About this RNA:
COG3610-DE RNA: a 121-nucleotide RNA from Lactobacillus amylovorus. The sequence is in the family's curated seed alignment. Taxonomically the source falls in Lactobacillus amylovorus (Bacteria, Bacillati, Bacillota, Lactobacillales). The base pairs follow the family's consensus structure, which is taken from published work.
RNA sequence: GACGAGUCGAUUAAUGAACGCGAGAUGCGUAUAUUUAUGAGAUAGAGGACAUCCGCCUUAAGUGGCAGACGCGGGAAGCGUCGAUGUUGGGCACACUGAUGUGAACAGUUUAAUGCCCACA
Numbered sequence: 001g002a003c004g005a006g007u008c009g010a011u012u013a014a015u016g017a018a019c020g021c022g023a024g025a026u027g028c029g030u031a032u033a034u035u036u037a038u039g040a041g042a043u044a045g046a047g048g049a050c051a052u053c054c055g056c057c058u059u060a061a062g063u064g065g066c067a068g069a070c071g072c073g074g075g076a077a078g079c080g081u082c083g084a085u086g087u088u089g090g091g092c093a094c095a096c097u098g099a100u101g102u103g104a105a106c107a108g109u110u111u112a113a114u115g116c117c118c119a120c121a
Stems, first nucleotide, its partner, number of pairs: 006043003009036002012033002018030004048088006055066003068082005089118003095109003
Dot-bracket structure: .....(((((.((....((((.....)))).)).))....)))....((((((.(((......))).(((((.....)))))))))))(((...(((.........)))......)))...